[Rfam]
RNA sequence: UAUUAAAAAUUUUAUCCAUUUCUACUGUUAAAAAUUAAUUCUUGCACGUCAGCAUGUCACAUAUUACUGUUUAGUUAUUCCGUCAGUCACGCUAGUUUUAACAAUACAAACGAAUGAAAUUUUUAACA
Numbered sequence: 001u002a003u004u005a006a007a008a009a010u011u012u013u014a015u016c017c018a019u020u021u022c023u024a025c026u027g028u029u030a031a032a033a034a035u036u037a038a039u040u041c042u043u044g045c046a047c048g049u050c051a052g053c054a055u056g057u058c059a060c061a062u063a064u065u066a067c068u069g070u071u072u073a074g075u076u077a078u079u080c081c082g083u084c085a086g087u088c089a090c091g092c093u094a095g096u097u098u099u100a101a102c103a104a105u106a107c108a109a110a111c112g113a114a115u116g117a118a119a120u121u122u123u124u125a126a127c128a
Stems, first nucleotide, its partner, number of pairs: 003126013019110003023106002026103001028101006
This 128-nucleotide RNA sequence from Gossypium armourianum belongs to the Rfam family "MIR7502 microRNA precursor family".
The base pairs follow the family's consensus structure, which was predicted with RNAalifold.
The organism belongs to Gossypium, within Eukaryota.